[Rfam]
RNA sequence: UAUUAAGGGCUAGUAAAGGAUUUCUUGGAAAUGAUAGGCGAUGAAGGACGUGCAAAUCUGCGAAAAGUAUCGGGUAGUCGAUUAGAGACCAUAAUCCGGUAAUCUCCGAAUGUAGAAAUACAGUAGAAACUAAUCUUUCUACUAUUAUUACGUGAAUUAAAUAAUGUAAUAAGGCGAACUCGGCGAAGUGAAACAUCUCAGUAGCCGAAGGAAAAGAAAACGAAGUGAUUCCCUCAGUAGUGGUGAGCGGAAGGGGAAGAGGCUAAACCAGUAAGUCUAGACGAUUAACUGGGGUUGUAGGACCUUACUAAAGCUAUUUUGGACUGUAGUAGAAGAUCAUUGGAAUGUGACGCUAUAAAGGGUGAUAGCCCCGUAUAUUAAACACGAAGAAAGCUUAAGGAAUCCUGAGUAGGGCGGGACAUGUGAACCCUGUUUGAAUCUGCCCCGACCAUGGGGUAAGCCUAAAUACUAAUCAUUUACCGAUAGUGAACAAGUACUGUGAAGGAAAGAUGAAAAGAACCCAGAUAUGGGAGUGAAAUAGAACAUGAAAUUACUAGCCUACAAA
Numbered sequence: 001u002a003u004u005a006a007g008g009g010c011u012a013g014u015a016a017a018g019g020a021u022u023u024c025u026u027g028g029a030a031a032u033g034a035u036a037g038g039c040g041a042u043g044a045a046g047g048a049c050g051u052g053c054a055a056a057u058c059u060g061c062g063a064a065a066a067g068u069a070u071c072g073g074g075u076a077g078u079c080g081a082u083u084a085g086a087g088a089c090c091a092u093a094a095u096c097c098g099g100u101a102a103u104c105u106c107c108g109a110a111u112g113u114a115g116a117a118a119u120a121c122a123g124u125a126g127a128a129a130c131u132a133a134u135c136u137u138u139c140u141a142c143u144a145u146u147a148u149u150a151c152g153u154g155a156a157u158u159a160a161a162u163a164a165u166g167u168a169a170u171a172a173g174g175c176g177a178a179c180u181c182g183g184c185g186a187a188g189u190g191a192a193a194c195a196u197c198u199c200a201g202u203a204g205c206c207g208a209a210g211g212a213a214a215a216g217a218a219a220a221c222g223a224a225g226u227g228a229u230u231c232c233c234u235c236a237g238u239a240g241u242g243g244u245g246a247g248c249g250g251a252a253g254g255g256g257a258a259g260a261g262g263c264u265a266a267a268c269c270a271g272u273a274a275g276u277c278u279a280g281a282c283g284a285u286u287a288a289c290u291g292g293g294g295u296u297g298u299a300g301g302a303c304c305u306u307a308c309u310a311a312a313g314c315u316a317u318u319u320u321g322g323a324c325u326g327u328a329g330u331a332g333a334a335g336a337u338c339a340u341u342g343g344a345a346u347g348u349g350a351c352g353c354u355a356u357a358a359a360g361g362g363u364g365a366u367a368g369c370c371c372c373g374u375a376u377a378u379u380a381a382a383c384a385c386g387a388a389g390a391a392a393g394c395u396u397a398a399g400g401a402a403u404c405c406u407g408a409g410u411a412g413g414g415c416g417g418g419a420c421a422u423g424u425g426a427a428c429c430c431u432g433u434u435u436g437a438a439u440c441u442g443c444c445c446c447g448a449c450c451a452u453g454g455g456g457u458a459a460g461c462c463u464a465a466a467u468a469c470u471a472a473u474c475a476u477u478u479a480c481c482g483a484u485a486g487u488g489a490a491c492a493a494g495u496a497c498u499g500u501g502a503a504g505g506a507a508a509g510a511u512g513a514a515a516a517g518a519a520c521c522c523a524g525a526u527a528u529g530g531g532a533g534u535g536a537a538a539u540a541g542a543a544c545a546u547g548a549a550a551u552u553a554c555u556a557g558c559c560u561a562c563a564a565a
Stems, first nucleotide, its partner, number of pairs: 007560010022545001023510002027481002029478007036470002038175002046107003049062003068101007077089003112121003122143007145172009179210001180208005190197002220226002229466001230257005240248002260463004268292005274286001299406003303400005314393002317390004322385001325384003329378003335351001337350004354358001360372003412435007442457005497504002520531004
Bacterial large subunit ribosomal RNA: a 565-nucleotide part of an RNA from Mycoplasma suis. It is one of the family's seed sequences.